[Rfam]
RNA sequence: GCCCGGUUGGCACAAUUGGUUAGCGCGUGAGACUUUUAAGGAGUGGCUCAAACCCCUCUGGAGAAUGGAGAUCUCAAGGUUGGGAGUUCGAGCCUCCCAUCGGGCG
Numbered sequence: 001g002c003c004c005g006g007u008u009g010g011c012a013c014a015a016u017u018g019g020u021u022a023g024c025g026c027g028u029g030a031g032a033c034u035u036u037u038a039a040g041g042a043g044u045g046g047c048u049c050a051a052a053c054c055c056c057u058c059u060g061g062a063g064a065a066u067g068g069a070g071a072u073c074u075c076a077a078g079g080u081u082g083g084g085a086g087u088u089c090g091a092g093c094c095u096c097c098c099a100u101c102g103g104g105c106g
Stems, first nucleotide, its partner, number of pairs: 001105007010026002013023001028076005082098005